The record is a 345-nucleotide part of an RNA from Staphylococcus saccharolyticus, which matches "Bacterial large subunit ribosomal RNA" in Rfam.
[Rfam]
RNA sequence: CGAGCGAACUCUCGUUAAGGAACUCGGCAAAAUGACCCCGUAACUUCGGGAGAAGGGGUGCUCUUUAGGGUUUACGCCCAGAAGAGCCGCAGUGAAUAGGCCCAAGCGACUGUUUAUCAAAAACACAGGUCUCUGCUAAACCGUAAGGUGAUGUAUAGGGGCUGACGCCUGCCCGGUGCUGGAAGGUUAAGAGGAGUGGUUAGCUUCUGCGAAGCCACGAAUCGAAGCCCCAGUAAACGGCGGCCGUAACUAUAACGGUCCUAAGGUAGCGAAAUUCCUUGUCGGGUAAGUUCCGACCCGCACGAAAGGCGUAACGAUUUGGGCACUGUCUCAACGAGAGACUCG
Numbered sequence: 001c002g003a004g005c006g007a008a009c010u011c012u013c014g015u016u017a018a019g020g021a022a023c024u025c026g027g028c029a030a031a032a033u034g035a036c037c038c039c040g041u042a043a044c045u046u047c048g049g050g051a052g053a054a055g056g057g058g059u060g061c062u063c064u065u066u067a068g069g070g071u072u073u074a075c076g077c078c079c080a081g082a083a084g085a086g087c088c089g090c091a092g093u094g095a096a097u098a099g100g101c102c103c104a105a106g107c108g109a110c111u112g113u114u115u116a117u118c119a120a121a122a123a124c125a126c127a128g129g130u131c132u133c134u135g136c137u138a139a140a141c142c143g144u145a146a147g148g149u150g151a152u153g154u155a156u157a158g159g160g161g162c163u164g165a166c167g168c169c170u171g172c173c174c175g176g177u178g179c180u181g182g183a184a185g186g187u188u189a190a191g192a193g194g195a196g197u198g199g200u201u202a203g204c205u206u207c208u209g210c211g212a213a214g215c216c217a218c219g220a221a222u223c224g225a226a227g228c229c230c231c232a233g234u235a236a237a238c239g240g241c242g243g244c245c246g247u248a249a250c251u252a253u254a255a256c257g258g259u260c261c262u263a264a265g266g267u268a269g270c271g272a273a274a275u276u277c278c279u280u281g282u283c284g285g286g287u288a289a290g291u292u293c294c295g296a297c298c299c300g301c302a303c304g305a306a307a308g309g310c311g312u313a314a315c316g317a318u319u320u321g322g323g324c325a326c327u328g329u330c331u332c333a334a335c336g337a338g339a340g341a342c343u344c345g
Base pairs, nucleotide, nucleotide: 001345002344003343004342009340010339011338012337013336014335015334016333018331019330020329035059036058037057038056039055044049060087061086062085063084064083065082066081068079069078070077071076088092100324101323102322103321104320105319106318107316108315111125112124113123128163129162130161131160132159133158134157135156136153140149141148142147166311167310168309169308171241172240173239176238177237178234179233180232181231182230185229186228187227191223192222196218197217198216199215200214203210204209242260243259244258245257246256247255261265271298281297282296283295284294285293286292

Background:
The source organism's lineage runs through Bacteria, Bacillota, Caryophanales, Staphylococcaceae and Staphylococcus. Pairs were carried over by alignment from the consensus structure, which is taken from published work.